The family of this 107-nucleotide RNA from Oceanospirillum sediminis is "TPP riboswitch aptamer (THI element)". A search with the family's covariance model found it, with a score of 81 bits. The base pairs follow the family's consensus structure, which is taken from published work. From the family's description: Vitamin B(1) in its active form thiamin pyrophosphate (TPP) is an essential coenzyme that is synthesised by coupling of pyrimidine and thiazole moieties in bacteria. The source organism's lineage runs through Bacteria, Pseudomonadati, Oceanospirillales, Oceanospirillaceae and Oceanospirillum.
Nucleotides: 107
Stems, first nucleotide, its partner, number of pairs: 006095005011057004016051001017032005039050004063088004069082004
Number, partner (000 for none) and nucleotide at each position: 001000c002000g003000g004000c005000u006095u007094c008093c009092u010091a011057a012056g013055g014054g015000g016051u017032g018031g019030c020029u021028g022000a023000u024000c025000u026000g027000u028021c029020a030019g031018c032017c033000u034000g035000a036000g037000a038000u039050g040049u041048c042047c043000u044000g045000c046000c047042g048041g049040g050039c051016a052000a053000a054014c055013c056012c057011u058000u059000u060000g061000a062000a063088c064087c065086u066085g067000a068000u069082c070081c071080g072079g073000a074000u075000g076000a077000u078000a079072c080071c081070g082069g083000c084000g085066u086065a087064g088063g089000g090000a091010u092009a093008g094007g095006a096000c097000u098000c099000u100000g101000a102000a103000c104000a105000a106000u107000u